The family of this 68-nucleotide sequence from Urocolius indicus is "mir-367 microRNA precursor family". Taxonomically the source falls in Urocolius (Eukaryota, Metazoa, Eumetazoa, Euteleostomi).

[Rfam]
RNA sequence: CUAAUACCGUUGCUAAUGUGCAACUCUGUUGUAUAAAAAUUGGAAUUGCACUUGAGCAAUGGUGAUGG
Numbered sequence: 001c002u003a004a005u006a007c008c009g010u011u012g013c014u015a016a017u018g019u020g021c022a023a024c025u026c027u028g029u030u031g032u033a034u035a036a037a038a039a040u041u042g043g044a045a046u047u048g049c050a051c052u053u054g055a056g057c058a059a060u061g062g063u064g065a066u067g068g
Stems, first nucleotide, its partner, number of pairs: 005064010016053001019050005025044004